[Rfam]
The record is a 78-nucleotide RNA from Actinoplanes italicus, which matches "c-di-GMP-I-GGC riboswitch aptamer" in Rfam. Rfam 15.1 lists 1,298 matches to the family in 717 species.

RNA sequence: ACCCGAACAGGCAAACCCGUCGUGAGGCGGGGACGCAAAGCCAGGGGCCUCCCCGCUGAGGUAGCCCAGCCGCCGAAG
Numbered sequence: 001a002c003c004c005g006a007a008c009a010g011g012c013a014a015a016c017c018c019g020u021c022g023u024g025a026g027g028c029g030g031g032g033a034c035g036c037a038a039a040g041c042c043a044g045g046g047g048c049c050u051c052c053c054c055g056c057u058g059a060g061g062u063a064g065c066c067c068a069g070c071c072g073c074c075g076a077a078g
Stems, first nucleotide, its partner, number of pairs: 003075001011036002016031006034064001040070002044067003047062003
Dot-bracket structure: ..(.......((...((((((....))))))..[))...((..((((((..........))).]))).))....)...

The literature on the family includes a 2017 paper in Proc Natl Acad Sci U S A by Weinberg et al., "Bioinformatic analysis of riboswitch structures uncovers variant classes with altered ligand specificity". Pairs were carried over by alignment from the consensus structure, which is taken from published work. A search with the family's covariance model found it, with a score of 63 bits.